RNA sequence: GAGUGCCAAAGGCAAACUUACCGAAAGGUGAGGACGCAAAGCCAUAGGGUCUAAAGUACCAACUGGUACUAUGACAGCCUGGCUGCCACU
Numbered sequence: 001g002a003g004u005g006c007c008a009a010a011g012g013c014a015a016a017c018u019u020a021c022c023g024a025a026a027g028g029u030g031a032g033g034a035c036g037c038a039a040a041g042c043c044a045u046a047g048g049g050u051c052u053a054a055a056g057u058a059c060c061a062a063c064u065g066g067u068a069c070u071a072u073g074a075c076a077g078c079c080u081g082g083c084u085g086c087c088a089c090u
Stems, first nucleotide, its partner, number of pairs: 012037002017032006040084004046080003049075003056069004